RNA sequence: CGGGCUAAUACUCAGAGCCUGUCCCCAUCUCGGCGUGCGUCGCUGGUAACGGUGGGGUGCGAAACCCGGGACAAAAGCCCAACUCGCAGCGCGUGAGGAUCUCAUCGGUGAGGGGGCCACGCCGGUACUUGGGCGUGAAGACCAAGUGGGCGU
Numbered sequence: 001c002g003g004g005c006u007a008a009u010a011c012u013c014a015g016a017g018c019c020u021g022u023c024c025c026c027a028u029c030u031c032g033g034c035g036u037g038c039g040u041c042g043c044u045g046g047u048a049a050c051g052g053u054g055g056g057g058u059g060c061g062a063a064a065c066c067c068g069g070g071a072c073a074a075a076a077g078c079c080c081a082a083c084u085c086g087c088a089g090c091g092c093g094u095g096a097g098g099a100u101c102u103c104a105u106c107g108g109u110g111a112g113g114g115g116g117c118c119a120c121g122c123c124g125g126u127a128c129u130u131g132g133g134c135g136u137g138a139a140g141a142c143c144a145a146g147u148g149g150g151c152g153u
Stems, first nucleotide, its partner, number of pairs: 002020005029070005034061005040055006083095001085093003097123002106113001128146005

Shown here is a 153-nucleotide RNA sequence from Streptomyces termitum, a member of the family "Group II catalytic intron D1-D4-7".
A reference for the family is Chu et al. (2001), "Control of branch-site choice by a group II intron", EMBO J.
The source organism's lineage runs through Bacteria, Actinomycetota, Actinomycetes, Streptomycetaceae and Streptomyces.
Rfam's curators write: Group II introns are found in rRNA, tRNA and mRNA of organelles in fungi, plants and protists, and also in mRNA in bacteria.